[Rfam]
RNA sequence: ACCCCCAUUAAUUUGCUGCUCUUUUCUAUCAGUGAUAGGAGCGGUUAUACGCAUGGGAUAAAACAAUAUUGGGCUAUUGUACACGGAGAUGAAGUGUGUUUUGUCUCUUGUACAUGGUCUGGACAUUG
Numbered sequence: 001a002c003c004c005c006c007a008u009u010a011a012u013u014u015g016c017u018g019c020u021c022u023u024u025u026c027u028a029u030c031a032g033u034g035a036u037a038g039g040a041g042c043g044g045u046u047a048u049a050c051g052c053a054u055g056g057g058a059u060a061a062a063a064c065a066a067u068a069u070u071g072g073g074c075u076a077u078u079g080u081a082c083a084c085g086g087a088g089a090u091g092a093a094g095u096g097u098g099u100u101u102u103g104u105c106u107c108u109u110g111u112a113c114a115u116g117g118u119c120u121g122g123a124c125a126u127u128g
Stems, first nucleotide, its partner, number of pairs: 004057005015045007022037001025035002069122008078114004086107009
This 128-nucleotide RNA from Rattus norvegicus belongs to the Rfam family "Small nucleolar RNA SNORA20". A search with the family's covariance model found it, with a score of 129 bits. ACA20 is a member of the H/ACA class of snoRNA that guide the sites of modification of uridines to pseudouridines. It is annotated as an H/ACA-box small nucleolar RNA. The family is grouped with related families in Rfam's "SNORA20 clan". Taxonomically the source falls in Rattus (Eukaryota, Mammalia, Glires, Muridae). The family has 17 seed sequences and 437 matches in Rfam 15.1.